[Rfam]
RNA sequence: GGGGACCUUCGGGGCCCUAUACACACAGACAGCCGGGCCCAUACCCGGCGCAGACCAACGGAAGACAGAAA
Numbered sequence: 001g002g003g004g005a006c007c008u009u010c011g012g013g014g015c016c017c018u019a020u021a022c023a024c025a026c027a028g029a030c031a032g033c034c035g036g037g038c039c040c041a042u043a044c045c046c047g048g049c050g051c052a053g054a055c056c057a058a059c060g061g062a063a064g065a066c067a068g069a070a071a
Stems, first nucleotide, its partner, number of pairs: 001018004006014003032049006

A member of the RNA family "L2-Alphaproteobacteria ribosomal protein leader", 71 nucleotides long.
The family's consensus secondary structure is taken from published work.
Rfam's curators put it in the seed alignment.
The family's RNA type in Rfam is cis-regulatory leader.